Record summary: Bacterial small subunit ribosomal RNA: a 352-nucleotide part of an RNA from Marinomonas mediterranea. The organism belongs to Marinomonas mediterranea, within Bacteria.
RNA sequence: GGCGUAAAGCGCGCGUAGGUGGUUUGUUAAGUCAGAUGUGAAAGCCCAGGGCUCAACCUUGGAAUUGCACCUGAUACUGGCAGGCUAGAGUACGGUAGAGGGAUGUGGAAUUUCCUGUGUAGCGGUGAAAUGCGUAGAUAUAGGAAGGAACAUCAGUGGCGAAGGCGACAUCCUGGACUGAUACUGACACUGAGGUGCGAAAGCGUGGGGAGCAAACAGGAUUAGAUACCCUGGUAGUCCACGCCGUAAACGAUGUCUACUAGCCGUUGGUCGAUUUUAGAUUAGUGGCGCAGCUAACGCGAUAAGUAGACCGCCUGGGGAGUACGGCCGCAAGGUUAAAACUCAAAUGAAU
Numbered sequence: 001g002g003c004g005u006a007a008a009g010c011g012c013g014c015g016u017a018g019g020u021g022g023u024u025u026g027u028u029a030a031g032u033c034a035g036a037u038g039u040g041a042a043a044g045c046c047c048a049g050g051g052c053u054c055a056a057c058c059u060u061g062g063a064a065u066u067g068c069a070c071c072u073g074a075u076a077c078u079g080g081c082a083g084g085c086u087a088g089a090g091u092a093c094g095g096u097a098g099a100g101g102g103a104u105g106u107g108g109a110a111u112u113u114c115c116u117g118u119g120u121a122g123c124g125g126u127g128a129a130a131u132g133c134g135u136a137g138a139u140a141u142a143g144g145a146a147g148g149a150a151c152a153u154c155a156g157u158g159g160c161g162a163a164g165g166c167g168a169c170a171u172c173c174u175g176g177a178c179u180g181a182u183a184c185u186g187a188c189a190c191u192g193a194g195g196u197g198c199g200a201a202a203g204c205g206u207g208g209g210g211a212g213c214a215a216a217c218a219g220g221a222u223u224a225g226a227u228a229c230c231c232u233g234g235u236a237g238u239c240c241a242c243g244c245c246g247u248a249a250a251c252g253a254u255g256u257c258u259a260c261u262a263g264c265c266g267u268u269g270g271u272c273g274a275u276u277u278u279a280g281a282u283u284a285g286u287g288g289c290g291c292a293g294c295u296a297a298c299g300c301g302a303u304a305a306g307u308a309g310a311c312c313g314c315c316u317g318g319g320g321a322g323u324a325c326g327g328c329c330g331c332a333a334g335g336u337u338a339a340a341a342c343u344c345a346a347a348u349g350a351a352u
Stems, first nucleotide, its partner, number of pairs: 001315003009312001011198004016192001018191003022085007030078002032074004037069004046062006089185003093180004100174007107151001111147008122133003159166002203244006212238002217233004255311006263289010274278001293300002317344003326337004